[Rfam]
RNA: small nucleolar RNA snoR134
RNA sequence: GUGCACAGUGCACCCCGGGCUUCCCGGAUCUCUUCUGAUUUGAAGAAUGAAGCCCCAAUGCCUGUGCGAAAUCACCGGCCGUCUAGUGUUGCAGUUUAGCUGAUUUCCUCGGCUCUGCUGUGUCAGAUCGACAGCCAAAUCU
Numbered sequence: 001g002u003g004c005a006c007a008g009u010g011c012a013c014c015c016c017g018g019g020c021u022u023c024c025c026g027g028a029u030c031u032c033u034u035c036u037g038a039u040u041u042g043a044a045g046a047a048u049g050a051a052g053c054c055c056c057a058a059u060g061c062c063u064g065u066g067c068g069a070a071a072u073c074a075c076c077g078g079c080c081g082u083c084u085a086g087u088g089u090u091g092c093a094g095u096u097u098a099g100c101u102g103a104u105u106u107c108c109u110c111g112g113c114u115c116u117g118c119u120g121u122g123u124c125a126g127a128u129c130g131a132c133a134g135c136c137a138a139a140u141c142u
Stems, first nucleotide, its partner, number of pairs: 003067006010061002017055005022049001025045001078135002081132003087125002090122006099113002